[Rfam]
RNA sequence: UAGUCAUGUUCUGAUAAUUGACACGUGUCAUAUUCUGAUUGACGAAUGACAACAACAAUCCAUUUCAUCUUCAAUGGAUUCAAUAUUCAAUCAGAACAUGACGCGUAUUCAAUAAGAACAUGACACGUGAUAAUCAACAUUC
Numbered sequence: 001u002a003g004u005c006a007u008g009u010u011c012u013g014a015u016a017a018u019u020g021a022c023a024c025g026u027g028u029c030a031u032a033u034u035c036u037g038a039u040u041g042a043c044g045a046a047u048g049a050c051a052a053c054a055a056c057a058a059u060c061c062a063u064u065u066c067a068u069c070u071u072c073a074a075u076g077g078a079u080u081c082a083a084u085a086u087u088c089a090a091u092c093a094g095a096a097c098a099u100g101a102c103g104c105g106u107a108u109u110c111a112a113u114a115a116g117a118a119c120a121u122g123a124c125a126c127g128u129g130a131u132a133a134u135c136a137a138c139a140u141u142c
Stems, first nucleotide, its partner, number of pairs: 020131001022129002025126002029122003033118004038113005

The record is a 142-nucleotide sequence from Glycine soja, which matches "MIR1520 microRNA precursor family" in Rfam. Lineage of the source: Eukaryota > Mesangiospermae > Fabaceae > Glycine > Glycine subgen. Soja. A search with the family's covariance model found it, with a score of 68 bits.